[Rfam]
RNA sequence: UAGAAGGAGCGCGACUGGCGGCACAGAGGAUGGAAUCGACCAUCGGGGAGCUCGUCGUGGAAGCCGACCGCCUGGGCGACCACG
Numbered sequence: 001u002a003g004a005a006g007g008a009g010c011g012c013g014a015c016u017g018g019c020g021g022c023a024c025a026g027a028g029g030a031u032g033g034a035a036u037c038g039a040c041c042a043u044c045g046g047g048g049a050g051c052u053c054g055u056c057g058u059g060g061a062a063g064c065c066g067a068c069c070g071c072c073u074g075g076g077c078g079a080c081c082a083c084g
Stems, first nucleotide, its partner, number of pairs: 004058001006056002009053001011051002015047002017072005030043004063077003
RNA: ZMP/ZTP riboswitch aptamer (pfl RNA motif)
Organism: Nonomuraea endophytica